[Rfam]
RNA sequence: UGACCACUUUUUCUAUUUGAAAAAGUUAAGGCAUCGGUUCGCCGGGUCAAAUGCCGG
Numbered sequence: 001u002g003a004c005c006a007c008u009u010u011u012u013c014u015a016u017u018u019g020a021a022a023a024a025g026u027u028a029a030g031g032c033a034u035c036g037g038u039u040c041g042c043c044g045g046g047u048c049a050a051a052u053g054c055c056g057g
Stems, first nucleotide, its partner, number of pairs: 001049005006026008
Rfam assigns this 57-nucleotide RNA sequence from Robertmurraya siralis to the family "Streptococcus sRNA SpF59 (ldcC RNA)". The literature on the family includes a 2012 paper in PLoS Pathog by Mann et al., "Control of virulence by small RNAs in Streptococcus pneumoniae". NCBI's taxonomy places the organism under Bacteria, Bacillota, Bacilli, Bacillaceae, Robertmurraya. By type it is a small RNA.